[Rfam]
RNA sequence: CGAUGUUCUCAGGGCGGGGUGGAAAUCCCCACCGGCGGUAAGGGUGAUGAGCCCAAGCCCGCGAGCGCCUUCCUCCGCGAAGCCGGGAGAAGGGUCAGCAGAUUCGGUGCAACUCCGAAGCCGACGGUUACAGUCCGGAUGAAAGAGAACGGUU
Numbered sequence: 001c002g003a004u005g006u007u008c009u010c011a012g013g014g015c016g017g018g019g020u021g022g023a024a025a026u027c028c029c030c031a032c033c034g035g036c037g038g039u040a041a042g043g044g045u046g047a048u049g050a051g052c053c054c055a056a057g058c059c060c061g062c063g064a065g066c067g068c069c070u071u072c073c074u075c076c077g078c079g080a081a082g083c084c085g086g087g088a089g090a091a092g093g094g095u096c097a098g099c100a101g102a103u104u105c106g107g108u109g110c111a112a113c114u115c116c117g118a119a120g121c122c123g124a125c126g127g128u129u130a131c132a133g134u135c136c137g138g139a140u141g142a143a144a145g146a147g148a149a150c151g152g153u154u
Stems, first nucleotide, its partner, number of pairs: 004151007017029003031134002033123002035062004057121002065099002103119005125137003
RNA: FMN riboswitch aptamer (RFN element)
Organism: Bradyrhizobium ivorense